[Rfam]
RNA sequence: UGGGCAGUAUCAUAUUGAACUGCACCUGUUAUCCGCAAGCUAGUUGAAAUUUAUAUCUGCCUAGAUCCGAUCAGCGGACCGGGACAGAGGG
Number, nucleotide and partner (000 for none) at each position: 001u000002g026003g025004g023005c022006a021007g020008u019009a000010u018011c017012a000013u000014a000015u000016u000017g011018a010019a008020c007021u006022g005023c004024a000025c003026c002027u000028g000029u000030u000031a000032u000033c000034c000035g000036c000037a000038a000039g000040c000041u000042a000043g000044u000045u000046g000047a000048a000049a000050u000051u000052u000053a000054u000055a000056u000057c087058u086059g085060c083061c082062u081063a000064g079065a000066u078067c077068c076069g000070a000071u000072c000073a000074g000075c000076g068077g067078a066079c064080c000081g062082g061083g060084a000085c059086a058087g057088a000089g000090g000091g000